This 139-nucleotide sequence from Ovis aries belongs to the Rfam family "Small nucleolar RNA SNORA42/SNORA80 family". From the family's description: The members of this family belong to the H/ACA class of snoRNAs that guide the sites of modification of uridines to pseudouridines. Human ACA42 (SNORA42) was cloned from HeLa cells by immunoprecipitation with anti-GAR1 antibody. Its is predicted to guide the pseudouridylation of residues U109 and U572 of 18S rRNA. ACA42 shares the same host gene with ACA26, ACA46, ACA50. This family also includes mammalian snoRNA ACA67 (SNORA80) which was identified by computational screening and its expression in mouse experimentally verified by Northern blot and primer extension analysis.
RNA sequence: GGAAGGGCUGCUAUAAUUUUAUGCUUUUGGCUCAUCCCCCUGGGCCUCUUCAUAGUGUCCCAUGCCAGAGCAAACCCGGCCUGAACCAUUGCCUGGCCUCUACCAGUAGGCUGUAGGCACUGAAGCGGGUUGCACAGUG
Numbered sequence: 001g002g003a004a005g006g007g008c009u010g011c012u013a014u015a016a017u018u019u020u021a022u023g024c025u026u027u028u029g030g031c032u033c034a035u036c037c038c039c040c041u042g043g044g045c046c047u048c049u050u051c052a053u054a055g056u057g058u059c060c061c062a063u064g065c066c067a068g069a070g071c072a073a074a075c076c077c078g079g080c081c082u083g084a085a086c087c088a089u090u091g092c093c094u095g096g097c098c099u100c101u102a103c104c105a106g107u108a109g110g111c112u113g114u115a116g117g118c119a120c121u122g123a124a125g126c127g128g129g130u131u132g133c134a135c136a137g138u139g
Base pairs, nucleotide, nucleotide: 001065003063005060006059007058008057019055020054021053022052023051029046030045031043032042077132078131079130080129081128082127087122088121092117093116094113095112096111097110098109099108